This 74-nucleotide RNA belongs to the Rfam family "pemK RNA".
[Rfam]
RNA sequence: AUAAUGAUACUUCCGUCCGGUCAUUUAAGUGAGGGCGGCAUUGCGAGAUCCGCAUUGAGGUGAAACUCCUAUGA
Numbered sequence: 001a002u003a004a005u006g007a008u009a010c011u012u013c014c015g016u017c018c019g020g021u022c023a024u025u026u027a028a029g030u031g032a033g034g035g036c037g038g039c040a041u042u043g044c045g046a047g048a049u050c051c052g053c054a055u056u057g058a059g060g061u062g063a064a065a066c067u068c069c070u071a072u073g074a
Stems, first nucleotide, its partner, number of pairs: 012071001013038006039057002043053003058070003